This 71-nucleotide sequence from Myotis lucifugus belongs to the Rfam family "mir-374 microRNA precursor family". A reference for the family is Mineno et al. (2006), "The expression profile of microRNAs in mouse embryos", Nucleic Acids Res.
[Rfam]
RNA sequence: GUGCAAACAAUGAUAGUACAACCUGGUAAGUGCUGGGCCACUUACCAGGUUGUAUUAUAUACAUCUGAGUA
Numbered sequence: 001g002u003g004c005a006a007a008c009a010a011u012g013a014u015a016g017u018a019c020a021a022c023c024u025g026g027u028a029a030g031u032g033c034u035g036g037g038c039c040a041c042u043u044a045c046c047a048g049g050u051u052g053u054a055u056u057a058u059a060u061a062c063a064u065c066u067g068a069g070u071a
Base pairs, nucleotide, nucleotide: 013058014057015056016055017054018053019052020051021050023048024047025046027044028043029042030041031040032039
Dot-bracket structure: ............(((((((((.(((.((((((......)))))).))).))))))))).............
The organism belongs to Myotis, within Eukaryota. The base pairs follow the family's consensus structure, which was predicted with PFOLD. The match comes from Rfam's covariance-model search (55 bits). Rfam 15.1 lists 440 matches to the family in 122 species.